[Rfam]
RNA: Bacterial RNase P class A
Organism: Pseudodesulfovibrio alkaliphilus
RNA sequence: GGAGCCGGACAGGCUGUCGCUGCGAUCAUUGAUCGGAGAGGAAAGUCCGGGCUCCACAGGGCAGGACGCUGGGUAACGCCCAGGGGGAGCGAUCCCCGUCAAGUGCAACAGAAAGCAGACCGCCUCCGGGGAAACCCGGCGGCAAGGGUGAAACGGUGGGGUAAGAGCCCACCGGCUGUCGUGGCGACACGGCAGGCCAGGUGAACUCCGUUCGGAGCAAGACCAAAUAGGGUAGCGUACGAGGCCGGCCCGGCCCAGGCUACCGGGUAGGUUGCUUGAGGCGGCUGGUAACAGCCGUCCUAGAGGAAUGACAGCCGCCCCCUCGGGGGCACAGAACCCGGCUUAUCGGCCGACUCCAAAC
Numbered sequence: 001g002g003a004g005c006c007g008g009a010c011a012g013g014c015u016g017u018c019g020c021u022g023c024g025a026u027c028a029u030u031g032a033u034c035g036g037a038g039a040g041g042a043a044a045g046u047c048c049g050g051g052c053u054c055c056a057c058a059g060g061g062c063a064g065g066a067c068g069c070u071g072g073g074u075a076a077c078g079c080c081c082a083g084g085g086g087g088a089g090c091g092a093u094c095c096c097c098g099u100c101a102a103g104u105g106c107a108a109c110a111g112a113a114a115g116c117a118g119a120c121c122g123c124c125u126c127c128g129g130g131g132a133a134a135c136c137c138g139g140c141g142g143c144a145a146g147g148g149u150g151a152a153a154c155g156g157u158g159g160g161g162u163a164a165g166a167g168c169c170c171a172c173c174g175g176c177u178g179u180c181g182u183g184g185c186g187a188c189a190c191g192g193c194a195g196g197c198c199a200g201g202u203g204a205a206c207u208c209c210g211u212u213c214g215g216a217g218c219a220a221g222a223c224c225a226a227a228u229a230g231g232g233u234a235g236c237g238u239a240c241g242a243g244g245c246c247g248g249c250c251c252g253g254c255c256c257a258g259g260c261u262a263c264c265g266g267g268u269a270g271g272u273u274g275c276u277u278g279a280g281g282c283g284g285c286u287g288g289u290a291a292c293a294g295c296c297g298u299c300c301u302a303g304a305g306g307a308a309u310g311a312c313a314g315c316c317g318c319c320c321c322c323u324c325g326g327g328g329g330c331a332c333a334g335a336a337c338c339c340g341g342c343u344u345a346u347c348g349g350c351c352g353a354c355u356c357c358a359a360a361c
Base pairs, nucleotide, nucleotide: 001357002356003355004354006352007351008350010348011346012316013315014314015313016312017311018310020038021037023035024034025033026032027031043344044343045342047341048340049339050338051337052217053216054215055214059251060250061249062248064213065212066211067210068209069083070082071081072080073079084097085096086095087094088093098208103206104205105202106201120147121146122143123142124141126139127138128137129136130135155173156172157171158170159169160168175197176195177194178193179192180191181190182189183188221273222272223271224270231264232263233262234261235260236259243255244254245253246252280299281298282297283296284295285294286293287292